Small nucleolar RNA snR8: a 196-nucleotide RNA sequence from Lodderomyces parapsilosis. Pairs were carried over by alignment from the consensus structure, which was predicted with WAR. NCBI's taxonomy places the organism under Eukaryota, Ascomycota, Pichiomycetes, Debaryomycetaceae, Lodderomyces.
RNA sequence: UGAUUCUUUGAUACGAAUGCAUUCUAUUCACUGCACCAUUUACUAUUUGAAAUGAAUGAGUGGAGGGGAAAAGAAUUGCUAGAUCAAAGUUCUUUUACUUCGUCGAAAUGUAUACCUCAUACUGAAUUAUGCUUUUGAGAAAGGAAUCUCUCUCAUUCAAGUGUAUAUAUUUGGAUCUUAAUAUUUCGACACAUUC
Numbered sequence: 001u002g003a004u005u006c007u008u009u010g011a012u013a014c015g016a017a018u019g020c021a022u023u024c025u026a027u028u029c030a031c032u033g034c035a036c037c038a039u040u041u042a043c044u045a046u047u048u049g050a051a052a053u054g055a056a057u058g059a060g061u062g063g064a065g066g067g068g069a070a071a072a073g074a075a076u077u078g079c080u081a082g083a084u085c086a087a088a089g090u091u092c093u094u095u096u097a098c099u100u101c102g103u104c105g106a107a108a109u110g111u112a113u114a115c116c117u118c119a120u121a122c123u124g125a126a127u128u129a130u131g132c133u134u135u136u137g138a139g140a141a142a143g144g145a146a147u148c149u150c151u152c153u154c155a156u157u158c159a160a161g162u163g164u165a166u167a168u169a170u171u172u173g174g175a176u177c178u179u180a181a182u183a184u185u186u187c188g189a190c191a192c193a194u195u196c
Stems, first nucleotide, its partner, number of pairs: 019079002022075002031065002034062002037058005102190005109183003122174003126170002128167005144152002
Dot-bracket structure: ..................((.((.......((.((.(((((............)))))..)).))........))..))......................(((((..(((..........(((.(((((((...........((.....))..........))))).)).)))......)))..)))))......